[Rfam]
Annotation
Archaeal small subunit ribosomal RNA: a 577-nucleotide part of an RNA from Sulfuracidifex metallicus. Its family is annotated with structural constituent of ribosome and ribosome in the Gene Ontology. For this family Rfam cites "Crystal structure of the ribosome at 5.5 A resolution" (Yusupov et al., Science, 2001). The family is grouped with related families in Rfam's "SSU clan". Rfam 15.1 lists 709 matches to the family in 491 species. It scores 1508 bits against the family's covariance model. Pairs were carried over by alignment from the consensus structure, which is taken from published work.
RNA sequence: UGGCGGGGGAGCACCACAAGGGGUGGAACCUGCGGCUCAAUUGGAGUCAACGCCUGGAAUCUUACCGGGGGAGACCGCAGAAUGACGGCCAGGCUGAUGACCUUGCCAGACUCGCGGAGAGGAGGUGCAUGGCCGUCGCCAGCUCGUGUUGUGAAAUGUCCUGUUAAGUCAGGCAACGAGCGAGACCUCUACUCCUAGUUGGUAUCUGGGCCUCCGGGCUUGGACCACACUAGGAGGACUGCCAGUGUUAAACUGGAGGAAGGUAGAGGCCACGGCAGGUCAGCAUGCCCCGAAACUCCCGGGCCGCACGCGGGUUACAAUGGUAGGGACAGCGGGAUCCAAGUCCGAAAGGAGGAGGCAAUCCCUUAAACCCUGCCUCAGUUGGGAUCGAGGGCUGAAACUAGCCCUCGUGAACGAGGAAUCCCUAGUAACCGCACGUCAACAACGUGCGGUGAAUACGUCCCUGCUCCUUGCACACACCGCCCGUCGCUCCACCCGAGCGUAAGAGGCGUGAGGAUCCCUGCGAAAGUGGGGAUUCGAACUCCUCUUACGUGAGGGGGGAGAAGUCGUAACAAGG
Numbered sequence: 001u002g003g004c005g006g007g008g009g010a011g012c013a014c015c016a017c018a019a020g021g022g023g024u025g026g027a028a029c030c031u032g033c034g035g036c037u038c039a040a041u042u043g044g045a046g047u048c049a050a051c052g053c054c055u056g057g058a059a060u061c062u063u064a065c066c067g068g069g070g071g072a073g074a075c076c077g078c079a080g081a082a083u084g085a086c087g088g089c090c091a092g093g094c095u096g097a098u099g100a101c102c103u104u105g106c107c108a109g110a111c112u113c114g115c116g117g118a119g120a121g122g123a124g125g126u127g128c129a130u131g132g133c134c135g136u137c138g139c140c141a142g143c144u145c146g147u148g149u150u151g152u153g154a155a156a157u158g159u160c161c162u163g164u165u166a167a168g169u170c171a172g173g174c175a176a177c178g179a180g181c182g183a184g185a186c187c188u189c190u191a192c193u194c195c196u197a198g199u200u201g202g203u204a205u206c207u208g209g210g211c212c213u214c215c216g217g218g219c220u221u222g223g224a225c226c227a228c229a230c231u232a233g234g235a236g237g238a239c240u241g242c243c244a245g246u247g248u249u250a251a252a253c254u255g256g257a258g259g260a261a262g263g264u265a266g267a268g269g270c271c272a273c274g275g276c277a278g279g280u281c282a283g284c285a286u287g288c289c290c291c292g293a294a295a296c297u298c299c300c301g302g303g304c305c306g307c308a309c310g311c312g313g314g315u316u317a318c319a320a321u322g323g324u325a326g327g328g329a330c331a332g333c334g335g336g337a338u339c340c341a342a343g344u345c346c347g348a349a350a351g352g353a354g355g356a357g358g359c360a361a362u363c364c365c366u367u368a369a370a371c372c373c374u375g376c377c378u379c380a381g382u383u384g385g386g387a388u389c390g391a392g393g394g395c396u397g398a399a400a401c402u403a404g405c406c407c408u409c410g411u412g413a414a415c416g417a418g419g420a421a422u423c424c425c426u427a428g429u430a431a432c433c434g435c436a437c438g439u440c441a442a443c444a445a446c447g448u449g450c451g452g453u454g455a456a457u458a459c460g461u462c463c464c465u466g467c468u469c470c471u472u473g474c475a476c477a478c479a480c481c482g483c484c485c486g487u488c489g490c491u492c493c494a495c496c497c498g499a500g501c502g503u504a505a506g507a508g509g510c511g512u513g514a515g516g517a518u519c520c521c522u523g524c525g526a527a528a529g530u531g532g533g534g535a536u537u538c539g540a541a542c543u544c545c546u547c548u549u550a551c552g553u554g555a556g557g558g559g560g561g562a563g564a565a566g567u568c569g570u571a572a573c574a575a576g577g
Stems, first nucleotide, its partner, number of pairs: 001477002003474003007471007016461002020425005025318001027316008035307002041056001043054002065302007075117004079112002087107003091103003121291002124289004130285002132280003135276004142181006148157003160173004187268004192236007202225002206223007239259002242256005322377007334365003339358002344353003384415001389410007431453008480576001482573001485569002488566001490563004495558003500553010511542002515538010